[Rfam]
RNA sequence: UCUCCCGCUUUUCCUCCCUGAGCGGGAAGCCUUAUCUGAUGAGGCUGUUCUGGCCCCCGAUUUUACUCCCCUUUAAUCGGGGGUUUUUUU
Numbered sequence: 001u002c003u004c005c006c007g008c009u010u011u012u013c014c015u016c017c018c019u020g021a022g023c024g025g026g027a028a029g030c031c032u033u034a035u036c037u038g039a040u041g042a043g044g045c046u047g048u049u050c051u052g053g054c055c056c057c058c059g060a061u062u063u064u065a066c067u068c069c070c071c072u073u074u075a076a077u078c079g080g081g082g083g084u085u086u087u088u089u090u
Stems, first nucleotide, its partner, number of pairs: 004026006029045007054083008

Rfam assigns this 90-nucleotide sequence from Methylovorus sp. MM2 to the family "Burkholderia RNA 7 (anti-hemB)". The base pairs follow the family's consensus structure, which is taken from published work. The match comes from Rfam's covariance-model search (63 bits). About the family: This RNA motif was identified by computational search in b-proteobacteria Burkholderia. By type it is a small RNA.